[Rfam]
RNA: DUF805b RNA
RNA sequence: CUGGAGGAAGCCGAAAAUCCUGAAAAGAGUAGGUU
Numbered sequence: 001c002u003g004g005a006g007g008a009a010g011c012c013g014a015a016a017a018u019c020c021u022g023a024a025a026a027g028a029g030u031a032g033g034u035u
Stems, first nucleotide, its partner, number of pairs: 003020003010034003
Dot-bracket structure: ..(((....[[[.....)))...........]]].